[Rfam]
The family of this 78-nucleotide sequence from Alteraurantiacibacter aestuarii is "Makes More Granules Regulator RNA (mmgR)". The family's RNA type in Rfam is small RNA. The organism belongs to Alteraurantiacibacter, within Bacteria. Pairs were carried over by alignment from the consensus structure.
RNA sequence: AGGGGGUGCCUUUCAGGCAUCCUCUCCCAAAAACUUCCAGCCCGGCCGUUCAUUCGGUCGGGCUUUUUUGUUGGUGUU
Number, nucleotide and partner (000 for none) at each position: 001a000002g000003g000004g000005g000006g000007u000008g018009c017010c016011u015012u000013u000014c000015a011016g010017g009018c008019a000020u000021c000022c000023u000024c000025u000026c000027c000028c000029a000030a000031a000032a000033a000034c000035u000036u000037c000038c000039a000040g063041c062042c061043c060044g059045g058046c057047c056048g055049u000050u000051c000052a000053u000054u000055c048056g047057g046058u045059c044060g043061g042062g041063c040064u000065u000066u000067u000068u000069u000070g000071u000072u000073g000074g000075u000076g000077u000078u000